[Rfam]
RNA sequence: AGCUGCAAGUUCAAGGCCAUAGCAGAAGUGUUCACAUUGCAGCCCCAUCAUGUUCUAAUAAAUCUGCAAAUUCUGCU
Numbered sequence: 001a002g003c004u005g006c007a008a009g010u011u012c013a014a015g016g017c018c019a020u021a022g023c024a025g026a027a028g029u030g031u032u033c034a035c036a037u038u039g040c041a042g043c044c045c046c047a048u049c050a051u052g053u054u055c056u057a058a059u060a061a062a063u064c065u066g067c068a069a070a071u072u073c074u075g076c077u
Stems, first nucleotide, its partner, number of pairs: 015044003021077007028040003049066002052063003
Mammalian CPEB3 ribozyme: a 77-nucleotide RNA sequence from Alligator mississippiensis. Lineage of the source: Eukaryota > Craniata > Gnathostomata > Tetrapoda > Alligator.